[Rfam]
RNA sequence: UGAUUUGAAAUUAAACAAGAGUACCUGCUAAAUUUAAGCAUAUAAUUAAGCAGAGAAAAAAAAAAUAACUAUGAUUUUUUUAGUAACGGCGAGUGAAUAAGAAAAAGCUUAUAGUGAAAAUUAUCAAUUUUUUUAAAGUUGUUUAAAUUGUAGUUUUAAGAAGUUUAACCGUUAAAACUGUGCAGUAAAGUUUUUUGAAAAAAAAUAUCAUAGAAAGUAAAAAUCAUGUUUUUGCUGCAUAGUGUUUUUAACGCUUGGUAAACUUUCAUAAAGUCACGUUUAUUAAGAUUUAAGCGUAAAUUUUGUAAUAAAUUUUACAUAAAGCUAAAUAAAACAUGCAAAACCGGUAGCAUACAAGUACCAUGAGGGAAAGAUGAAAAGAACUUUGAAAAAAGAGUUAAAAGUGCUUGAAAUUGUUAAAAAAGAUC
Numbered sequence: 001u002g003a004u005u006u007g008a009a010a011u012u013a014a015a016c017a018a019g020a021g022u023a024c025c026u027g028c029u030a031a032a033u034u035u036a037a038g039c040a041u042a043u044a045a046u047u048a049a050g051c052a053g054a055g056a057a058a059a060a061a062a063a064a065a066u067a068a069c070u071a072u073g074a075u076u077u078u079u080u081u082a083g084u085a086a087c088g089g090c091g092a093g094u095g096a097a098u099a100a101g102a103a104a105a106a107g108c109u110u111a112u113a114g115u116g117a118a119a120a121u122u123a124u125c126a127a128u129u130u131u132u133u134u135a136a137a138g139u140u141g142u143u144u145a146a147a148u149u150g151u152a153g154u155u156u157u158a159a160g161a162a163g164u165u166u167a168a169c170c171g172u173u174a175a176a177a178c179u180g181u182g183c184a185g186u187a188a189a190g191u192u193u194u195u196u197g198a199a200a201a202a203a204a205a206u207a208u209c210a211u212a213g214a215a216a217g218u219a220a221a222a223a224u225c226a227u228g229u230u231u232u233u234g235c236u237g238c239a240u241a242g243u244g245u246u247u248u249u250a251a252c253g254c255u256u257g258g259u260a261a262a263c264u265u266u267c268a269u270a271a272a273g274u275c276a277c278g279u280u281u282a283u284u285a286a287g288a289u290u291u292a293a294g295c296g297u298a299a300a301u302u303u304u305g306u307a308a309u310a311a312a313u314u315u316u317a318c319a320u321a322a323a324g325c326u327a328a329a330u331a332a333a334a335c336a337u338g339c340a341a342a343a344c345c346g347g348u349a350g351c352a353u354a355c356a357a358g359u360a361c362c363a364u365g366a367g368g369g370a371a372a373g374a375u376g377a378a379a380a381g382a383a384c385u386u387u388g389a390a391a392a393a394a395g396a397g398u399u400a401a402a403a404g405u406g407c408u409u410g411a412a413a414u415u416g417u418u419a420a421a422a423a424a425g426a427u428c
Base pairs, nucleotide, nucleotide: 024055025053026052027051028050029049035042036041065072066071076103077102078101079100080099086094087093106326107325108324109323113154115152116151118149119148121146122145123143125141126140127139128138129137160267161266162264163263164262165261168259169258170257172251173250174249175248176247177245178244180240181239182238183237184236185235186234190206192205193204194203195202209213217225276297277296278295279294280293281292282291304319305318306317307316361368362367384395385394386393387392
Eukaryotic large subunit ribosomal RNA: a 428-nucleotide part of an RNA from Sciurus carolinensis.